[Rfam]
RNA: antisense RNA of dnaA mRNA
RNA sequence: UUUGGCGUUCGGUUUACGCGCCAUGAUGCCGUUCCCUACCGCAUGCAGCAGGUGGGUUUUACCCAGACCGGUGCCGCCAUA
Numbered sequence: 001u002u003u004g005g006c007g008u009u010c011g012g013u014u015u016a017c018g019c020g021c022c023a024u025g026a027u028g029c030c031g032u033u034c035c036c037u038a039c040c041g042c043a044u045g046c047a048g049c050a051g052g053u054g055g056g057u058u059u060u061a062c063c064c065a066g067a068c069c070g071g072u073g074c075c076g077c078c079a080u081a
Stems, first nucleotide, its partner, number of pairs: 005042003009038001011036002016032003020029002051078004056074002061072003